IS605-orfB-I RNA: a 210-nucleotide RNA sequence. Pairs were carried over by alignment from the consensus structure, which is taken from published work.
RNA sequence: ACCUUAUACAGAUGUAGUGACGCAAGACAGUGACGCAUCUCCCUGUAAGGUGGUGUUUAUACAGAAGUAUCGGUGACAAGUUCUAUUGUGUGGCAUUCAGUCGAAAUAGAAUAAGCUGAUAUGGAAUAGGUUAACCGUAAGACCUUAAGUUGGACUACUCUAAAAUUGACCUAGAAAUUUCUCAAAUUCCUUAUUUCUAGUUACGGUAUU
Numbered sequence: 001a002c003c004u005u006a007u008a009c010a011g012a013u014g015u016a017g018u019g020a021c022g023c024a025a026g027a028c029a030g031u032g033a034c035g036c037a038u039c040u041c042c043c044u045g046u047a048a049g050g051u052g053g054u055g056u057u058u059a060u061a062c063a064g065a066a067g068u069a070u071c072g073g074u075g076a077c078a079a080g081u082u083c084u085a086u087u088g089u090g091u092g093g094c095a096u097u098c099a100g101u102c103g104a105a106a107u108a109g110a111a112u113a114a115g116c117u118g119a120u121a122u123g124g125a126a127u128a129g130g131u132u133a134a135c136c137g138u139a140a141g142a143c144c145u146u147a148a149g150u151u152g153g154a155c156u157a158c159u160c161u162a163a164a165a166u167u168g169a170c171c172u173a174g175a176a177a178u179u180u181c182u183c184a185a186a187u188u189c190c191u192u193a194u195u196u197c198u199a200g201u202u203a204c205g206g207u208a209u210u
Base pairs, nucleotide, nucleotide: 001051002050003049004048005047006046007045008044010040011039012038013037014036015035017034018033020031021030022028067122068121069120070119071118072117073116074115081111082110083109084108085107086106087105092102093101128145129144130143131142132141134207135206136205137204138203139202140166148159149158150157171200172199173198174197175196176195177194178193